[Rfam]
RNA sequence: AACUAUAACAGUCGAUGAGGAGAGGUUUUAGUUCAUGUUAACAUCCGUGCUCAAAGAAAGAGUUCAUAGAUAUACCAGAGAUAAACCAUAUAGAUUAUAUGCCUUUAUCUUAUUGGGAUCGAUGUGGAUUGUACCGUGGCCAUUUCACCACCUUAAUAGCGGUGCUUUGAUUAGGAAAAGCUGAGGCUG
Numbered sequence: 001a002a003c004u005a006u007a008a009c010a011g012u013c014g015a016u017g018a019g020g021a022g023a024g025g026u027u028u029u030a031g032u033u034c035a036u037g038u039u040a041a042c043a044u045c046c047g048u049g050c051u052c053a054a055a056g057a058a059a060g061a062g063u064u065c066a067u068a069g070a071u072a073u074a075c076c077a078g079a080g081a082u083a084a085a086c087c088a089u090a091u092a093g094a095u096u097a098u099a100u101g102c103c104u105u106u107a108u109c110u111u112a113u114u115g116g117g118a119u120c121g122a123u124g125u126g127g128a129u130u131g132u133a134c135c136g137u138g139g140c141c142a143u144u145u146c147a148c149c150a151c152c153u154u155a156a157u158a159g160c161g162g163u164g165c166u167u168u169g170a171u172u173a174g175g176a177a178a179a180g181c182u183g184a185g186g187c188u189g
Stems, first nucleotide, its partner, number of pairs: 009189005016147005024141004029131007042124004062071003072119002075116004079110007087101005149164004
Rfam assigns this 189-nucleotide RNA sequence from Naumovozyma dairenensis to the family "Small nucleolar RNA snR4".
Lineage of the source: Eukaryota > Fungi > saccharomyceta > Saccharomycotina > Naumovozyma dairenensis.
A reference for the family is Balakin et al. (1996), "The RNA world of the nucleolus: two major families of small RNAs defined by different box elements with related functions", Cell.
A search with the family's covariance model found it, with a score of 132 bits.
It is annotated as a C/D-box small nucleolar RNA.